Annotation: A member of the RNA family "tRNA" from Pseudoclavibacter caeni, 74 nucleotides long. For this family Rfam cites "The tertiary structure of tRNA and the development of the genetic code" (Hou, Trends Biochem Sci, 1993).
RNA sequence: GGGGCGUUAGCUCAGCUGGUCAGAGCACGGGACUCAUAAUCCCUUGGUCGCGGGUUCAAGUCCCGCACGCCCCA
Numbered sequence: 001g002g003g004g005c006g007u008u009a010g011c012u013c014a015g016c017u018g019g020u021c022a023g024a025g026c027a028c029g030g031g032a033c034u035c036a037u038a039a040u041c042c043c044u045u046g047g048u049c050g051c052g053g054g055u056u057c058a059a060g061u062c063c064c065g066c067a068c069g070c071c072c073c074a
Stems, first nucleotide, its partner, number of pairs: 001073007010026004029043004050066005
Transfer RNA (tRNA) molecules are approximately 80 nucleotides in length. The base pairs follow the family's consensus structure, which is taken from published work.